[Rfam]
Rfam assigns this 122-nucleotide RNA from Pedobacter changchengzhani to the family "Group II catalytic intron D1-D4-2". From the family's description: Group II introns are found in rRNA, tRNA and mRNA of organelles in fungi, plants and protists, and also in mRNA in bacteria. The organism belongs to Pedobacter, within Bacteria. The pairing is the family consensus, mapped onto this sequence.
RNA sequence: CAAAGAAUUGGACUAUCAGAUAGGACUUUCAGGAGUUGUGUCUAAACCGCCCUGAGGUGCUGAUUUUAAGAGGAUCGGUAUUGAGCGUCAAGGUCAAAGCAAGUUCAUCAUCAUUUGUAGGA
Numbered sequence: 001c002a003a004a005g006a007a008u009u010g011g012a013c014u015a016u017c018a019g020a021u022a023g024g025a026c027u028u029u030c031a032g033g034a035g036u037u038g039u040g041u042c043u044a045a046a047c048c049g050c051c052c053u054g055a056g057g058u059g060c061u062g063a064u065u066u067u068a069a070g071a072g073g074a075u076c077g078g079u080a081u082u083g084a085g086c087g088u089c090a091a092g093g094u095c096a097a098a099g100c101a102a103g104u105u106c107a108u109c110a111u112c113a114u115u116u117g118u119a120g121g122a
Stems, first nucleotide, its partner, number of pairs: 002016001004014002018043005025036004048121001050093002053090003056082002059079003063075004099118006